Mammalian CPEB3 ribozyme: a 73-nucleotide RNA from Alligator sinensis. A search with the family's covariance model found it, with a score of 37 bits.

[Rfam]
RNA sequence: CGUCAGUCACAGAGGCCAAAGCAGAAGUGCUCGUGACGCAGCCUGGCAGAUUCCAAUGACUGCGAAUUCUGCU
Numbered sequence: 001c002g003u004c005a006g007u008c009a010c011a012g013a014g015g016c017c018a019a020a021g022c023a024g025a026a027g028u029g030c031u032c033g034u035g036a037c038g039c040a041g042c043c044u045g046g047c048a049g050a051u052u053c054c055a056a057u058g059a060c061u062g063c064g065a066a067u068u069c070u071g072c073u
Stems, first nucleotide, its partner, number of pairs: 014043003020073007027039003047062003052059002